Rfam assigns this 436-nucleotide part of an RNA from Galemys pyrenaicus to the family "Eukaryotic large subunit ribosomal RNA". A search with the family's covariance model found it, with a score of 2200 bits.
[Rfam]
RNA sequence: UGGGAGCCCCGGGGAGAGUUCUCUUUUCUUUGUGAAGGGCAGGGCGCCCUGGAAUGGGUUCGCCCAAGAGAGAGGGGCCCACGCCUUGGAAAGCGUCGUGGUUCCGGCAGCGUUCAGUGAGCUCUGCCUCAGCCGGUGCCUAGCAGCCGACUUAGAACUGGUGCGGACCAGGGGAAUCCGACUGUUUAAUUAAAACAAAGCAUCGCGAAGGCCCGCGGCGGGUGUUGACACGAUAUGAUUUCUGCCCAGUGCUCUGAAUGUCAAAGUGAAGAAAUUCAAUGAAGCGCGGGUAAACGGCGGGAGUAACUAUGACUCUCUUAAGGUAGCCAAAUGCCUCAUCAUCUAAUUAGUGACACGCAUGAAUGGAUGAACGAGGUUCCCACUGUCCCUACCUACUAUCCAGCGAAACCACAGCCAAGGGAAUGGGCUUGGCGGA
Numbered sequence: 001u002g003g004g005a006g007c008c009c010c011g012g013g014g015a016g017a018g019u020u021c022u023c024u025u026u027u028c029u030u031u032g033u034g035a036a037g038g039g040c041a042g043g044g045c046g047c048c049c050u051g052g053a054a055u056g057g058g059u060u061c062g063c064c065c066a067a068g069a070g071a072g073a074g075g076g077g078c079c080c081a082c083g084c085c086u087u088g089g090a091a092a093g094c095g096u097c098g099u100g101g102u103u104c105c106g107g108c109a110g111c112g113u114u115c116a117g118u119g120a121g122c123u124c125u126g127c128c129u130c131a132g133c134c135g136g137u138g139c140c141u142a143g144c145a146g147c148c149g150a151c152u153u154a155g156a157a158c159u160g161g162u163g164c165g166g167a168c169c170a171g172g173g174g175a176a177u178c179c180g181a182c183u184g185u186u187u188a189a190u191u192a193a194a195a196c197a198a199a200g201c202a203u204c205g206c207g208a209a210g211g212c213c214c215g216c217g218g219c220g221g222g223u224g225u226u227g228a229c230a231c232g233a234u235a236u237g238a239u240u241u242c243u244g245c246c247c248a249g250u251g252c253u254c255u256g257a258a259u260g261u262c263a264a265a266g267u268g269a270a271g272a273a274a275u276u277c278a279a280u281g282a283a284g285c286g287c288g289g290g291u292a293a294a295c296g297g298c299g300g301g302a303g304u305a306a307c308u309a310u311g312a313c314u315c316u317c318u319u320a321a322g323g324u325a326g327c328c329a330a331a332u333g334c335c336u337c338a339u340c341a342u343c344u345a346a347u348u349a350g351u352g353a354c355a356c357g358c359a360u361g362a363a364u365g366g367a368u369g370a371a372c373g374a375g376g377u378u379c380c381c382a383c384u385g386u387c388c389c390u391a392c393c394u395a396c397u398a399u400c401c402a403g404c405g406a407a408a409c410c411a412c413a414g415c416c417a418a419g420g421g422a423a424u425g426g427g428c429u430u431g432g433c434g435g436a
Base pairs, nucleotide, nucleotide: 001402002401003400004399011396012392013388014387015386027034038159039158041152042151043148044147045146160164172381173380174379175378176377177376178375179373180372183197184196185195200236202234203233204232205231207229209225211223212222213221214220240367241366242365244298245297246296249295250294251291252290253289254288256287259286260285261284267278268277269276270275299317300316301315302314303313304312318322339353340352341351342350415432416431417430418429419428